[Rfam]
RNA sequence: UUGAAGGAUUAUAUCGAAGAAUCAAAUGAAGGGGUAACGCCCUGAAGGGUUCUCUCUUAGUCGAGUAGCACUGAUUUAGUAAGAAUGACGGUGUUAUAAGCUCGGUGAAAAGGCGUGAGAAACUACCGUAACAGUUCGGCUGACGAAAGCCUACUCGAUGGAGUGGUGUAGUUCAUGAUGCUUGAGUUGAAUGA
Numbered sequence: 001u002u003g004a005a006g007g008a009u010u011a012u013a014u015c016g017a018a019g020a021a022u023c024a025a026a027u028g029a030a031g032g033g034g035u036a037a038c039g040c041c042c043u044g045a046a047g048g049g050u051u052c053u054c055u056c057u058u059a060g061u062c063g064a065g066u067a068g069c070a071c072u073g074a075u076u077u078a079g080u081a082a083g084a085a086u087g088a089c090g091g092u093g094u095u096a097u098a099a100g101c102u103c104g105g106u107g108a109a110a111a112g113g114c115g116u117g118a119g120a121a122a123c124u125a126c127c128g129u130a131a132c133a134g135u136u137c138g139g140c141u142g143a144c145g146a147a148a149g150c151c152u153a154c155u156c157g158a159u160g161g162a163g164u165g166g167u168g169u170a171g172u173u174c175a176u177g178a179u180g181c182u183u184g185a186g187u188u189g190a191a192u193g194a
Base pairs, nucleotide, nucleotide: 018053019052020051021050022049023048031043032042033041034040054186055185056184061105062104063103064102065097066096067095068094069093070092071091072090073089075087112182113181114180115179116178121173122172123171124170125169126168127145128144129143133141134140149167150166151165153164154163155162156161
The record is a 194-nucleotide RNA sequence from Psychrobacillus glaciei, which matches "Group II catalytic intron D1-D4-5" in Rfam. Gene Ontology term of the family: Group II intron splicing. Rfam 15.1 lists 720 matches to the family in 418 species. Rfam's curators write: Group II introns are found in rRNA, tRNA and mRNA of organelles in fungi, plants and protists, and also in mRNA in bacteria.